Shown here is a 48-nucleotide sequence from Roseibium sp. RKSG952, a member of the family "Guanidine-II riboswitch aptamer (mini-ykkC)". About the family: Simpler in structure and has fewer highly conserved nucleotide positions than the ykkC-yxkD leader. Despite this each of its two stem-loop structures directly bind free guanidine.
RNA sequence: AGCAGAGGACGACCUCCCCAUCACGGGAUAUCAUUCGGGACGACCCGA
Dot-bracket structure: .(..((((....))))).................(((((....)))))

Description: Pairs were carried over by alignment from the consensus structure, which is taken from published work.